[Rfam]
RNA sequence: AAAAAGAAAUUAAAAAUAUUUAGAUUUCAAAAUCUUUGUUAUAUUAAACAAUGGCCGAGAUAUCGUUUCGGUUGUCAUCUUUUUUUAUUGGCAAUUCGAUUGUCGCUCGUCCACAU
Numbered sequence: 001a002a003a004a005a006g007a008a009a010u011u012a013a014a015a016a017u018a019u020u021u022a023g024a025u026u027u028c029a030a031a032a033u034c035u036u037u038g039u040u041a042u043a044u045u046a047a048a049c050a051a052u053g054g055c056c057g058a059g060a061u062a063u064c065g066u067u068u069c070g071g072u073u074g075u076c077a078u079c080u081u082u083u084u085u086u087a088u089u090g091g092c093a094a095u096u097c098g099a100u101u102g103u104c105g106c107u108c109g110u111c112c113a114c115a116u
Stems, first nucleotide, its partner, number of pairs: 001026002005021003008017001053112002056109004062100004071095007

The family of this 116-nucleotide RNA sequence from Juglans regia is "Small nucleolar RNA snoR111".
Lineage of the source: Eukaryota > Streptophytina > Tracheophyta > Gunneridae > Juglans.
The family's consensus secondary structure was predicted with WAR.
The family's RNA type in Rfam is H/ACA-box small nucleolar RNA.
A search with the family's covariance model found it, with a score of 76 bits.
The literature on the family includes a 2002 paper in Curr Biol by Marker et al., "Experimental RNomics: identification of 140 candidates for small non-messenger RNAs in the plant Arabidopsis thaliana".